[Rfam]
Nucleotides: 090
Base pairs, nucleotide, nucleotide: 001090003087004086011036012035016031017030018029019028020027021026034076039083040082041081042080044079045078046077047074048073049072
Number, partner (000 for none) and nucleotide at each position: 001090c002000c003087a004086g005000u006000a007000a008000a009000a010000g011036g012035u013000a014000a015000a016031c017030c018029u019028g020027c021026u022000g023000a024000a025000a026021g027020g028019c029018a030017g031016g032000g033000g034076c035012a036011c037000a038000a039083a040082g041081u042080c043000a044079c045078g046077g047074g048073u049072c050000u051000a052000a053000g054000g055000u056000u057000a058000u059000u060000u061000u062000u063000a064000u065000a066000u067000a068000c069000u070000a071000c072049g073048a074047c075000g076034g077046c078045c079044g080042g081041a082040c083039u084000g085000c086004c087003u088000g089000g090001g
The record is a 90-nucleotide RNA sequence from Paenibacillus durus, which matches "c-di-GMP-I-GGC riboswitch aptamer" in Rfam. Gene Ontology term of the family: cyclic-di-GMP binding.